Small nucleolar RNA snoR104: a 119-nucleotide sequence from Ziziphus jujuba. The match comes from Rfam's covariance-model search (116 bits).
[Rfam]
RNA sequence: GGGGAGCAUCCAAAAGUUGAGAUGCUACCUGAUACAAUCUUCCCACAGAAAACCUCUGCGUUUUCCUGCUUGUAGUACCUUGAGCAAGUACUGCAAGUCUCAAAUUGAAAGAGACAUGA
Numbered sequence: 001g002g003g004g005a006g007c008a009u010c011c012a013a014a015a016g017u018u019g020a021g022a023u024g025c026u027a028c029c030u031g032a033u034a035c036a037a038u039c040u041u042c043c044c045a046c047a048g049a050a051a052a053c054c055u056c057u058g059c060g061u062u063u064u065c066c067u068g069c070u071u072g073u074a075g076u077a078c079c080u081u082g083a084g085c086a087a088g089u090a091c092u093g094c095a096a097g098u099c100u101c102a103a104a105u106u107g108a109a110a111g112a113g114a115c116a117u118g119a
Base pairs, nucleotide, nucleotide: 001030002029003028005026006025007024008023009022010021055112056111057110068098069097070096071095072094073093074092075091077089078088
Record summary:
It is annotated as an H/ACA-box small nucleolar RNA. NCBI's taxonomy places the organism under Eukaryota, rosids, Rosales, Rhamnaceae, Ziziphus.